[Rfam]
RNA: Archaeal large subunit ribosomal RNA, nucleotides 2099 to 2686
Organism: Candidatus Haloredivivus sp. G17
RNA sequence: CUCCUGGUGGGAAGCGAAGACCCUUUGAACCUUUACUGCAGUCUAUUGUUGCGGUGGGGUUCCAAGUGUGAAGUGUAGGUAGUAGACAUUACAGAGACGCAGUCGCAAGGCUGUCGCCCAGUCGACUAUGGGACACUACCCUCUUGGAACCCCGCUGCUUACUUCUACGGAAGGACAUCAAUAGCUGGGCAGUUUAGCUGGGGCGGCAUCCCUCUGAUAACGAAUCAGAGGGGUCCAAAAGUAGGCUCAACCCGUUCAGAAAUCGGGUGUAGAGGACAAAGCCAAAAGCCUGCUUGACUGGAAUCCUGAUAGUAGGGUUUCCAGGCGCGAAAGCGUGGCUUAGCGAACGCCUAUAGCCAAAAUCUUUUGUGAGGCUUAGGCCUGACAAGAAAGGUACUCAAGGGAUAACUGGAUUGUCUGAGGCGCGAGUUCACAUCGACCCUCAGGCUUGUUACUUCGAUGUCGGCUCUCCGUAUCCUGGCUGUGCAACAGCAGCCAAGGGUGAGGGUGUUCACCUAUUAAAACGGAUCGUGAGCUGGGUUUAGAUCGGCGUGAGCCAGAUCUGUUGCUAUCUGCCAGGAGUGUGUU
Number, nucleotide and partner (000 for none) at each position: 001c582002u581003c580004c579005u578006g577007g576008u575009g000010g574011g573012a572013a000014g569015c568016g000017a000018a000019g000020a000021c000022c403023c402024u401025u400026u000027g399028a398029a395030c394031c393032u392033u391034u000035a193036c192037u191038g190039c000040a000041g000042u000043c184044u183045a182046u181047u180048g179049u000050u000051g158052c157053g156054g155055u154056g153057g152058g151059g150060u149061u148062c147063c146064a145065a144066g143067u000068g141069u000070g000071a000072a000073g000074u000075g000076u000077a000078g140079g139080u138081a137082g136083u000084a000085g123086a122087c121088a000089u000090u000091a000092c000093a000094g000095a000096g000097a000098c000099g000100c113101a112102g111103u110104c109105g000106c000107a000108a000109g104110g103111c102112u101113g100114u000115c000116g000117c000118c000119c000120a000121g087122u086123c085124g000125a000126c000127u000128a000129u000130g000131g000132g000133a000134c000135a000136c082137u081138a080139c079140c078141c068142u000143c066144u065145u064146g063147g062148a061149a060150c059151c058152c057153c056154g055155c054156u053157g052158c051159u000160u000161a000162c173163u172164u171165c170166u000167a000168c000169g000170g165171a164172a163173g162174g000175a000176c000177a000178u000179c048180a047181a046182u045183a044184g043185c000186u000187g000188g000189g000190c038191a037192g036193u035194u000195u000196a209197g207198c206199u205200g000201g000202g000203g000204c000205g199206g198207c197208a000209u196210c232211c231212c230213u229214c228215u227216g000217a000218u000219a000220a000221c000222g000223a000224a000225u000226c000227a215228g214229a213230g212231g211232g210233g000234u000235c338236c337237a000238a000239a000240a000241g293242u292243a291244g290245g289246c288247u273248c272249a000250a268251c267252c266253c265254g264255u000256u000257c000258a000259g000260a000261a000262a000263u000264c254265g253266g252267g251268u250269g000270u000271a000272g248273a247274g283275g282276a000277c000278a000279a000280a000281g000282c275283c274284a000285a000286a000287a000288g246289c245290c244291u243292g242293c241294u000295u000296g000297a000298c324299u323300g322301g321302a320303a319304u000305c317306c316307u000308g000309a000310u000311a000312g000313u000314a000315g000316g306317g305318u000319u303320u302321c301322c300323a299324g298325g000326c335327g000328c333329g000330a000331a000332a000333g328334c000335g326336u000337g236338g235339c000340u000341u000342a000343g000344c000345g000346a000347a000348c000349g381350c380351c379352u378353a377354u000355a376356g375357c374358c373359a000360a000361a000362a000363u000364c000365u000366u000367u000368u000369g000370u000371g000372a000373g358374g357375c356376u355377u353378a352379g351380g350381c349382c000383u000384g000385a000386c000387a000388a000389g000390a000391a033392a032393g031394g030395u029396a000397c000398u028399c027400a025401a024402g023403g022404g000405a000406u000407a000408a000409c000410u000411g000412g453413a452414u451415u000416g450417u447418c446419u445420g444421a443422g442423g441424c000425g000426c000427g437428a436429g000430u000431u000432c000433a000434c000435a000436u428437c427438g000439a000440c000441c423442c422443u421444c420445a419446g418447g417448c000449u000450u416451g414452u413453u412454a000455c000456u000457u000458c000459g000460a000461u000462g000463u000464c539465g537466g536467c535468u534469c531470u528471c527472c526473g525474u524475a000476u000477c502478c501479u000480g000481g496482c495483u494484g493485u492486g000487c000488a000489a000490c000491a000492g485493c484494a483495g482496c481497c000498a000499a000500g000501g478502g477503u000504g000505a517506g516507g515508g000509u000510g000511u000512u000513c000514a000515c507516c506517u505518a000519u000520u000521a000522a000523a000524a474525c473526g472527g471528a470529u000530c000531g469532u000533g000534a468535g467536c466537u465538g000539g464540g000541u000542u000543u000544a000545g563546a562547u561548c560549g558550g557551c556552g000553u000554g000555a000556g551557c550558c549559a000560g548561a547562u546563c545564u000565g000566u000567u000568g015569c014570u000571a000572u012573c011574u010575g008576c007577c006578a005579g004580g003581a002582g001583u000584g000585u000586g000587u000588u000